[Rfam]
RNA sequence: AUCUUAUUAAGAGUCUCUGAGGGACUGGCCCAAUGAAGCACAGCAACCUGAAAAAUCUUUCAUUUAGUUUUUUAAGGUGCUAAAUCCUGCAGGAAUUUUAUUCCUGAGAAAUGAGAA
Numbered sequence: 001a002u003c004u005u006a007u008u009a010a011g012a013g014u015c016u017c018u019g020a021g022g023g024a025c026u027g028g029c030c031c032a033a034u035g036a037a038g039c040a041c042a043g044c045a046a047c048c049u050g051a052a053a054a055a056u057c058u059u060u061c062a063u064u065u066a067g068u069u070u071u072u073u074a075a076g077g078u079g080c081u082a083a084a085u086c087c088u089g090c091a092g093g094a095a096u097u098u099u100a101u102u103c104c105u106g107a108g109a110a111a112u113g114a115g116a117a
Base pairs, nucleotide, nucleotide: 002116003115004114005113006112007111008110013041014040017038021031022030023029025089027087028086042081043080044079045078047077048076050072051071052070053069054068085109090106091105092104093103094102095101
Overview:
Rfam assigns this 117-nucleotide RNA from Clostridium sp. SM-530-WT-3G to the family "SAM riboswitch aptamer (S box leader)". Lineage of the source: Bacteria > Bacillota > Clostridia > Clostridiaceae > Clostridium.